RNA sequence: GAUUCGGUCUCGCUGAGUUUCCUGCAUAGGAAAACGGGGGAACCAACAUAUGUCUUCAAGCCAUUAUUAUCAGAAUACCGAAGUCAUUAUGUAUGAUUCCUUUUACAGGGUCUAUGGGGUGAAUUGGAGGUACUCGCGCCAUGAGCGGAGGAGCCUUCAAAGGGCAAGAAAUAUGAUGUGUCCGAAUCCGACAGCUAACCCCGUAAGCGAUGCAGAGGCAACCU
Numbered sequence: 001g002a003u004u005c006g007g008u009c010u011c012g013c014u015g016a017g018u019u020u021c022c023u024g025c026a027u028a029g030g031a032a033a034a035c036g037g038g039g040g041a042a043c044c045a046a047c048a049u050a051u052g053u054c055u056u057c058a059a060g061c062c063a064u065u066a067u068u069a070u071c072a073g074a075a076u077a078c079c080g081a082a083g084u085c086a087u088u089a090u091g092u093a094u095g096a097u098u099c100c101u102u103u104u105a106c107a108g109g110g111u112c113u114a115u116g117g118g119g120u121g122a123a124u125u126g127g128a129g130g131u132a133c134u135c136g137c138g139c140c141a142u143g144a145g146c147g148g149a150g151g152a153g154c155c156u157u158c159a160a161a162g163g164g165c166a167a168g169a170a171a172u173a174u175g176a177u178g179u180g181u182c183c184g185a186a187u188c189c190g191a192c193a194g195c196u197a198a199c200c201c202c203g204u205a206a207g208c209g210a211u212g213c214a215g216a217g218g219c220a221a222c223c224u
Stems, first nucleotide, its partner, number of pairs: 011209004018033006034204006044116002117189003125159007162183004
c-di-AMP riboswitch aptamer (ydaO/yuaA leader): a 224-nucleotide RNA from Paenibacillus nuruki. The source organism's lineage runs through Bacteria, Bacillati, Caryophanales, Paenibacillaceae and Paenibacillus.